Qrr RNA: a 95-nucleotide sequence from Vibrio palustris. Rfam 15.1 lists 148 matches to the family in 70 species. The match comes from Rfam's covariance-model search (82 bits). On this family, see Lenz et al., Cell 2004: "The Small RNA Chaperone Hfq and Multiple Small RNAs Control Quorum Sensing in Vibrio harveyi and Vibrio cholerae". The family's consensus secondary structure is taken from published work. Rfam describes the family as follows. This family represents a set of small RNAs (the Qrr RNAs) that are thought to be involved in the regulation of quorum sensing in Vibrio species. It is believed that these RNAs, guided by a protein, Hfq, can mediate the destabilisation of the quorum-sensing master regulators LuxR/HapR mRNAs.
RNA sequence: UGACCCGCAAGGGUCACCUAGCCAACUGACGUUGUUAGUGAAUUCGAUGUUCACAAUAUUAUAGCCAAUAGAGCCUUUCUAUUGGCUCUUUUUUU
Numbered sequence: 001u002g003a004c005c006c007g008c009a010a011g012g013g014u015c016a017c018c019u020a021g022c023c024a025a026c027u028g029a030c031g032u033u034g035u036u037a038g039u040g041a042a043u044u045c046g047a048u049g050u051u052c053a054c055a056a057u058a059u060u061a062u063a064g065c066c067a068a069u070a071g072a073g074c075c076u077u078u079c080u081a082u083u084g085g086c087u088c089u090u091u092u093u094u095u
Stems, first nucleotide, its partner, number of pairs: 001016006032064004038054006065085008